[Rfam]
RNA sequence: ACUCUCUCACUCUGCAUGGCUACACUACAUGCAGUCUCCCGUGUGACUUUCGUACUGGGAGAGAGAGAAAGCGAGUUCCUCCAGUACUUUGGAUUGGCUUCACAGUAGCCUUUCUUGCCUAGAGGAGCACCACAGGU
Dot-bracket structure: .(((((((.(((.(...((.(((((...............))))).))......).))).)))))))........(((((..((......(((..((((.......))))..)))...))..)))))..........
A member of the RNA family "Small nucleolar RNA SNORA64/SNORA10 family" from Rattus norvegicus, 137 nucleotides long. From the family's description: This family belongs to the H/ACA class of small nucleolar RNAs (snoRNAs) which act as guides in the the modification of uridines to pseudouridines. Rfam links the family to the GO terms RNA processing and nucleolus. Rfam classes the family as an H/ACA-box small nucleolar RNA. Pairs were carried over by alignment from the consensus structure, which is taken from published work.